[Rfam]
Annotation
Shown here is a 79-nucleotide RNA from Tupaia belangeri, a member of the family "mir-450 microRNA precursor family". The organism belongs to Tupaia belangeri, within Eukaryota. Rfam links the family to the GO terms RISC complex and miRNA-mediated post-transcriptional gene silencing. The base pairs follow the family's consensus structure, which was predicted with RNAalifold. A reference for the family is Chiang et al. (2010), "Mammalian microRNAs: experimental evaluation of novel and previously annotated genes", Genes Dev.
RNA sequence: GCAGAAUUCUUUCUGCAAGAUGUUCCUGAAUAUGUAAUGCAAGUGUAUUGGGAGCAUGUUACAUCCAUAGUUUUGUGUC
Numbered sequence: 001g002c003a004g005a006a007u008u009c010u011u012u013c014u015g016c017a018a019g020a021u022g023u024u025c026c027u028g029a030a031u032a033u034g035u036a037a038u039g040c041a042a043g044u045g046u047a048u049u050g051g052g053a054g055c056a057u058g059u060u061a062c063a064u065c066c067a068u069a070g071u072u073u074u075g076u077g078u079c
Stems, first nucleotide, its partner, number of pairs: 004073005010067001014063002017060002020057008029049006
Dot-bracket structure: ...(((((.(...((.((.((((((((.((((((.........)))))))))))))).)).))...).)))))......